[Rfam]
RNA sequence: ACCAAGGGGUCCUUCCGCGACGUCCCCGUGAGGCGACAGCCCAAAGUUCGCGUCCCAACCUCCAUCCCAGGAGCCGGACGCUAUG
Numbered sequence: 001a002c003c004a005a006g007g008g009g010u011c012c013u014u015c016c017g018c019g020a021c022g023u024c025c026c027c028g029u030g031a032g033g034c035g036a037c038a039g040c041c042c043a044a045a046g047u048u049c050g051c052g053u054c055c056c057a058a059c060c061u062c063c064a065u066c067c068c069a070g071g072a073g074c075c076g077g078a079c080g081c082u083a084u085g
Stems, first nucleotide, its partner, number of pairs: 006027004050081006

chrB-a RNA: an 85-nucleotide sequence from Phreatobacter aquaticus. A search with the family's covariance model found it, with a score of 54 bits. By type it is a cis-regulatory element. The base pairs follow the family's consensus structure, which is taken from published work.